Alphaproteobacterial sRNA BjrC1505: a 143-nucleotide RNA from Methylopila jiangsuensis. The pairing is the family consensus, mapped onto this sequence.

RNA sequence: CGGGUUGGAAACGUUGCGUUAACCUUUCCGGAUCAUGAAUCGGGGCGUCCAGCUUUCUGGAUUUCGAGUGGGUCCUGUCCACUCUGUAUGACGCCUCCCUGUCAUUCGACUUCAGGCCGCCCUUCGCAGGCGGCCUUUUUUCG
Numbered sequence: 001c002g003g004g005u006u007g008g009a010a011a012c013g014u015u016g017c018g019u020u021a022a023c024c025u026u027u028c029c030g031g032a033u034c035a036u037g038a039a040u041c042g043g044g045g046c047g048u049c050c051a052g053c054u055u056u057c058u059g060g061a062u063u064u065c066g067a068g069u070g071g072g073u074c075c076u077g078u079c080c081a082c083u084c085u086g087u088a089u090g091a092c093g094c095c096u097c098c099c100u101g102u103c104a105u106u107c108g109a110c111u112u113c114a115g116g117c118c119g120c121c122c123u124u125c126g127c128a129g130g131c132g133g134c135c136u137u138u139u140u141u142c143g
Stems, first nucleotide, its partner, number of pairs: 001043001003041002006013001015037002020035001022033001024031002047062004066084006090103004114136008